[Rfam]
RNA sequence: CGGCGGGGACGACCCCGCCGCACACGGAGCCAGGCAUGGACGACCUUG
Number, nucleotide and partner (000 for none) at each position: 001c020002g019003g018004c017005g016006g015007g014008g013009a000010c000011g000012a000013c008014c007015c006016c005017g004018c003019c002020g001021c000022a000023c000024a000025c000026g000027g000028a000029g000030c000031c000032a000033g000034g000035c048036a047037u000038g045039g044040a000041c000042g000043a000044c039045c038046u000047u036048g035

Annotation
Guanidine-II riboswitch aptamer (mini-ykkC): a 48-nucleotide RNA from Massilia violaceinigra. Rfam's curators write: Simpler in structure and has fewer highly conserved nucleotide positions than the ykkC-yxkD leader. Despite this each of its two stem-loop structures directly bind free guanidine. Therefore, mini-ykkC RNA motif represents a distinct class of guanidine-sensing RNAs. Its crystal structure was also determined. It scores 39 bits against the family's covariance model. The literature on the family includes a 2007 paper in Nucleic Acids Res by Weinberg et al., "Identification of 22 candidate structured RNAs in bacteria using the CMfinder comparative genomics pipeline". Lineage of the source: Bacteria > Pseudomonadati > Betaproteobacteria > Oxalobacteraceae > Massilia.